[Rfam]
Shown here is a 98-nucleotide sequence from Malus domestica, a member of the family "Small nucleolar RNA Z43". Taxonomically the source falls in Malus (Eukaryota, Tracheophyta, Mesangiospermae, Pentapetalae). The match comes from Rfam's covariance-model search (84 bits). The family's consensus secondary structure was predicted with PFOLD. Rfam 15.1 lists 859 matches to the family in 240 species. Rfam classes the family as a C/D-box small nucleolar RNA.
RNA sequence: GGGCAAUGACGAUUCAUUGAUAUAAGGUCUCGUUCGUCGUAACGGCCGUUAAGGCCUUGCCGACCAUCCUGCUAUAUCACCACCCAUAUUCUGAGUCU
Dot-bracket structure: ((((..............................................((....))....................................))))